This 445-nucleotide part of an RNA from Kozakia baliensis belongs to the Rfam family "Bacterial large subunit ribosomal RNA". A search with the family's covariance model found it, with a score of 2728 bits.
RNA sequence: CUCCGCGAAAUCUAUUGAGGUAGAUCGUCUGGUAUUGCCCUCGGGGGUAGAGCACUGGAUGGGCUAGGGGGGCCCAAAGCCUUACCAAACCUAACCAAACUCCGAAUACCGAGGAGUAUGAGCCAGGCAGACAGACAGUGGGUGCUAAGGUCCAUUGUCGAGAGGGAAACAGCCCAGACCACCAGCUAAGGCCCCCAAAUCGUGGCUAAGUGGGAAAGGAUGUGGGGAUUCCAAAACAACCAGGAGGUUGGCUUAGAAGCAGCCAUCCUUUAAAGAAAGCGUAAUAGCUCACUGGUCUAAUAGAAACCCUGCGCCGAAAAUGUAACGGGGCUCAAGCCACGUGCCGAAGCUGUGGGUGCAUACUAUGUAUGCGCGGUAGCGGAGCGUUCCGUAAGUCUGCGAAGGAGACGGGGUGACCCUCUCUGGAGAUAUCGGAAGUGCGAAU
Numbered sequence: 001c002u003c004c005g006c007g008a009a010a011u012c013u014a015u016u017g018a019g020g021u022a023g024a025u026c027g028u029c030u031g032g033u034a035u036u037g038c039c040c041u042c043g044g045g046g047g048u049a050g051a052g053c054a055c056u057g058g059a060u061g062g063g064c065u066a067g068g069g070g071g072g073c074c075c076a077a078a079g080c081c082u083u084a085c086c087a088a089a090c091c092u093a094a095c096c097a098a099a100c101u102c103c104g105a106a107u108a109c110c111g112a113g114g115a116g117u118a119u120g121a122g123c124c125a126g127g128c129a130g131a132c133a134g135a136c137a138g139u140g141g142g143u144g145c146u147a148a149g150g151u152c153c154a155u156u157g158u159c160g161a162g163a164g165g166g167a168a169a170c171a172g173c174c175c176a177g178a179c180c181a182c183c184a185g186c187u188a189a190g191g192c193c194c195c196c197a198a199a200u201c202g203u204g205g206c207u208a209a210g211u212g213g214g215a216a217a218g219g220a221u222g223u224g225g226g227g228a229u230u231c232c233a234a235a236a237c238a239a240c241c242a243g244g245a246g247g248u249u250g251g252c253u254u255a256g257a258a259g260c261a262g263c264c265a266u267c268c269u270u271u272a273a274a275g276a277a278a279g280c281g282u283a284a285u286a287g288c289u290c291a292c293u294g295g296u297c298u299a300a301u302a303g304a305a306a307c308c309c310u311g312c313g314c315c316g317a318a319a320a321u322g323u324a325a326c327g328g329g330g331c332u333c334a335a336g337c338c339a340c341g342u343g344c345c346g347a348a349g350c351u352g353u354g355g356g357u358g359c360a361u362a363c364u365a366u367g368u369a370u371g372c373g374c375g376g377u378a379g380c381g382g383a384g385c386g387u388u389c390c391g392u393a394a395g396u397c398u399g400c401g402a403a404g405g406a407g408a409c410g411g412g413g414u415g416a417c418c419c420u421c422u423c424u425g426g427a428g429a430u431a432u433c434g435g436a437a438g439u440g441c442g443a444a445u
Stems, first nucleotide, its partner, number of pairs: 001384006011024005026130001027128007035121001036118003039114006050103001051101002056097003060093004067086002069083005134159010164175003179355004184351003190345003199342001201341006218315002222312006229305003239296005245269003250264003270274001275290001279288002356374008385440001387437005395430003404424005410419003

Taxonomically the source falls in Kozakia (Bacteria, Alphaproteobacteria, Acetobacterales, Acetobacteraceae).